[Rfam]
RNA: Bacterial small signal recognition particle RNA
RNA sequence: UAUCGGUUCCCUCGCGACGUGAAACUGUGAACUCCGCCAGGUCCGGAAGGAAGCAACGGCAGCAGUGGAGUCGUGCGCCGAGGUGUAGCUGCUAAGG
Numbered sequence: 001u002a003u004c005g006g007u008u009c010c011c012u013c014g015c016g017a018c019g020u021g022a023a024a025c026u027g028u029g030a031a032c033u034c035c036g037c038c039a040g041g042u043c044c045g046g047a048a049g050g051a052a053g054c055a056a057c058g059g060c061a062g063c064a065g066u067g068g069a070g071u072c073g074u075g076c077g078c079c080g081a082g083g084u085g086u087a088g089c090u091g092c093u094a095a096g097g
Base pairs, nucleotide, nucleotide: 004091005090006089007088008087010083011082012081013080014079015075017074018073019072024066025065026064027063028062034059035058036057042051043050044049